[Rfam]
RNA sequence: AUUUCCAAUUCGCUGAGUUUCCAUUUUGGAAAACGGGGGAACCGAAUGUGAACAGCUUUCAGGCUUUGUGGACGGCCUUGAAGUGACGGCACGGUUUUGGGGUGAAUCCUUGGACGGCUGCUUUAGCAGCCCGUACAGGUAGGGCGACUCUUUCGUCCGAAUCCGUCAGCUAACCUCGUAAGCGUUGAAGAGAGGAUAC
Numbered sequence: 001a002u003u004u005c006c007a008a009u010u011c012g013c014u015g016a017g018u019u020u021c022c023a024u025u026u027u028g029g030a031a032a033a034c035g036g037g038g039g040a041a042c043c044g045a046a047u048g049u050g051a052a053c054a055g056c057u058u059u060c061a062g063g064c065u066u067u068g069u070g071g072a073c074g075g076c077c078u079u080g081a082a083g084u085g086a087c088g089g090c091a092c093g094g095u096u097u098u099g100g101g102g103u104g105a106a107u108c109c110u111u112g113g114a115c116g117g118c119u120g121c122u123u124u125a126g127c128a129g130c131c132c133g134u135a136c137a138g139g140u141a142g143g144g145c146g147a148c149u150c151u152u153u154c155g156u157c158c159g160a161a162u163c164c165g166u167c168a169g170c171u172a173a174c175c176u177c178g179u180a181a182g183c184g185u186u187g188a189a190g191a192g193a194g195g196a197u198a199c
Stems, first nucleotide, its partner, number of pairs: 011184004018032003033179006043099004100164003108139003142158004
RNA: c-di-AMP riboswitch aptamer (ydaO/yuaA leader)
Organism: Paenibacillus sp. YN15